[Rfam]
RNA sequence: CCCUCUGAAGUUUCCCCCAGGAUAGCUGGAGUUCGUGUUGUGCAGUUAUAUUCGGUAAAGCGAAUGAUUAGAGGAAUUGGGGACGAAACGACCUCAACCUAUUCUCAAACUUUCAAUGGGUAUGAAGUCCCGCUUGCUUGACGUUGCUGAAGCGUGGACAUUGAAUGUGAGCUCCAAGUGGGCCAUUUUUGGUAAGCAGAACUGGCGCUGUGGGAUGAACCAAACGUCGGGUUAAAGUGCCAAACUUCCCGCUCAUGAGACCCCAUGAAAGGCGUUGGUUGAUAUAGACAGCAGGACGGUGGCCAUGGAAGUAGGAAUCCGCUAAGGAGUGUGUAACAACUCACCUGCCGAAUCAACUAGCCCUGAAAAUGGAUGGCGCUUGAGCGGGAGACUGAUACCGACCGUUGCUUGGCUUGUGUGUUUUUCGUACGAGAGAUUCGCCUGGCCGCAACGAGCAAGAGAGUCGCAGUGGUUUGCGUUGAAGGCUUUGAGCGUAGGCCCGGCUGGAGCUUCCACUGGUGCAGAUCUUGGUGGUAGUAGCAAAUAUUCAAGUGAGAUCCUUGAA
Numbered sequence: 001c002c003c004u005c006u007g008a009a010g011u012u013u014c015c016c017c018c019a020g021g022a023u024a025g026c027u028g029g030a031g032u033u034c035g036u037g038u039u040g041u042g043c044a045g046u047u048a049u050a051u052u053c054g055g056u057a058a059a060g061c062g063a064a065u066g067a068u069u070a071g072a073g074g075a076a077u078u079g080g081g082g083a084c085g086a087a088a089c090g091a092c093c094u095c096a097a098c099c100u101a102u103u104c105u106c107a108a109a110c111u112u113u114c115a116a117u118g119g120g121u122a123u124g125a126a127g128u129c130c131c132g133c134u135u136g137c138u139u140g141a142c143g144u145u146g147c148u149g150a151a152g153c154g155u156g157g158a159c160a161u162u163g164a165a166u167g168u169g170a171g172c173u174c175c176a177a178g179u180g181g182g183c184c185a186u187u188u189u190u191g192g193u194a195a196g197c198a199g200a201a202c203u204g205g206c207g208c209u210g211u212g213g214g215a216u217g218a219a220c221c222a223a224a225c226g227u228c229g230g231g232u233u234a235a236a237g238u239g240c241c242a243a244a245c246u247u248c249c250c251g252c253u254c255a256u257g258a259g260a261c262c263c264c265a266u267g268a269a270a271g272g273c274g275u276u277g278g279u280u281g282a283u284a285u286a287g288a289c290a291g292c293a294g295g296a297c298g299g300u301g302g303c304c305a306u307g308g309a310a311g312u313a314g315g316a317a318u319c320c321g322c323u324a325a326g327g328a329g330u331g332u333g334u335a336a337c338a339a340c341u342c343a344c345c346u347g348c349c350g351a352a353u354c355a356a357c358u359a360g361c362c363c364u365g366a367a368a369a370u371g372g373a374u375g376g377c378g379c380u381u382g383a384g385c386g387g388g389a390g391a392c393u394g395a396u397a398c399c400g401a402c403c404g405u406u407g408c409u410u411g412g413c414u415u416g417u418g419u420g421u422u423u424u425u426c427g428u429a430c431g432a433g434a435g436a437u438u439c440g441c442c443u444g445g446c447c448g449c450a451a452c453g454a455g456c457a458a459g460a461g462a463g464u465c466g467c468a469g470u471g472g473u474u475u476g477c478g479u480u481g482a483a484g485g486c487u488u489u490g491a492g493c494g495u496a497g498g499c500c501c502g503g504c505u506g507g508a509g510c511u512u513c514c515a516c517u518g519g520u521g522c523a524g525a526u527c528u529u530g531g532u533g534g535u536a537g538u539a540g541c542a543a544a545u546a547u548u549c550a551a552g553u554g555a556g557a558u559c560c561u562u563g564a565a
Base pairs, nucleotide, nucleotide: 001463003461004460005459006458011024013022014021015020027176028175029174030173031172032171033170046125047124048123049122050121051120052119053118058113059111060110065107066106067105070102072100073099074098077097078096079095080094081093082092084090127159128158129157130156131154132153133152134151135150182206183205184204185203187201188200189199190198191197211222212221213220226402227401228400229399230398232397236393237392238391245390247389250386251385252384270364271363272362274361275360276359277358278357279356280355281354282353283352291348292347293346294345295344297321298320299319303315304314322326327342331340332339403453404452405451406450407449408448411447412446413445465521467518468517469516470515471514472513476510477509484505485504492499493498547565548564549563550562551561552560